[Rfam]
RNA sequence: ACAGCCGGUACGCCAAAUCCCAGGCGCCCCGCCUGGGAACCGGGGACCCACAGGUUCUUGGGGUGAAUCCACGUCCGUGGUAGGGCUUCUCCGGCCCGAACCCGUCAGCUAACCCGGUCGGCAGAUGGAGAGGAGAG
Dot-bracket structure: ...........(((...(((((((((...)))))))))((((((....((........))(((.....((((....))))..((((.......))))...))).........)))))).)))...............